About this RNA:
Lysine riboswitch aptamer: a 182-nucleotide RNA sequence from Vibrio aquimaris. The base pairs follow the family's consensus structure, which is taken from published work.

RNA sequence: CAUCGCGGUAGAGGAGCAGGGCGAAUAAGUAGGGCUUGUUGGGGUGAUGCCAAUGAACAAGUGUGAAAGGUUGUUUUGCCGAAGUAGGUUUCCAUAUCAAAGGAGCUUGCUGGGGUUGCACCCGAAAGGGGUAACACUGCCAUAGUCUAUUACUUUUAACACUAUGGAGCGCUACUGUAGGG
Number, nucleotide and partner (000 for none) at each position: 001c000002a000003u000004c000005g000006c177007g176008g175009u174010a173011g172012a000013g000014g000015a000016g079017c078018a077019g076020g075021g074022c073023g072024a071025a000026u000027a000028a000029g000030u000031a000032g064033g000034g062035c061036u060037u059038g058039u057040u000041g000042g000043g000044g000045u000046g000047a000048u000049g000050c000051c000052a000053a000054u000055g000056a000057a039058c038059a037060a036061g035062u034063g000064u032065g000066a000067a000068a000069g000070g000071u024072u023073g022074u021075u020076u019077u018078g017079c016080c000081g000082a000083a111084g110085u109086a108087g107088g106089u105090u104091u103092c102093c000094a000095u000096a000097u000098c000099a000100a000101a000102g092103g091104a090105g089106c088107u087108u086109g085110c084111u083112g138113g137114g000115g135116u134117u133118g132119c131120a000121c129122c128123c000124g000125a000126a000127a000128g122129g121130g000131g119132u118133a117134a116135c115136a000137c113138u112139g000140c167141c166142a165143u164144a163145g162146u161147c000148u000149a000150u000151u000152a000153c000154u000155u000156u000157u000158a000159a000160c000161a146162c145163u144164a143165u142166g141167g140168a000169g000170c000171g000172c011173u010174a009175c008176u007177g006178u000179a000180g000181g000182g000